A member of the RNA family "SAM (S-adenosyl methionine) riboswitch aptamer" from Streptomyces aurantiacus, 110 nucleotides long.
The source organism's lineage runs through Bacteria, Bacillati, Actinomycetota, Streptomycetaceae and Streptomyces.
A search with the family's covariance model found it, with a score of 80 bits.
[Rfam]
RNA sequence: GGCAUCGAGUGUCAGUGUCAAGCCCUGGCUUGCUGACCGGCAACCCUCGCACGCGGUGGGGUGCUCCAGGUGAAGGCCCGGCAGAGUCGCUGGCUCCGCAAGUGCGUGAC
Dot-bracket structure: (((.....(.((((((....((......)).)))))))(((..(((.(.......)..))).)))..........)))..((.(((((...))))).))...........
Numbered sequence: 001g002g003c004a005u006c007g008a009g010u011g012u013c014a015g016u017g018u019c020a021a022g023c024c025c026u027g028g029c030u031u032g033c034u035g036a037c038c039g040g041c042a043a044c045c046c047u048c049g050c051a052c053g054c055g056g057u058g059g060g061g062u063g064c065u066c067c068a069g070g071u072g073a074a075g076g077c078c079c080g081g082c083a084g085a086g087u088c089g090c091u092g093g094c095u096c097c098g099c100a101a102g103u104g105c106g107u108g109a110c
Stems, first nucleotide, its partner, number of pairs: 001078003009038001011037006021030002039065003044061003048056001081099002084096005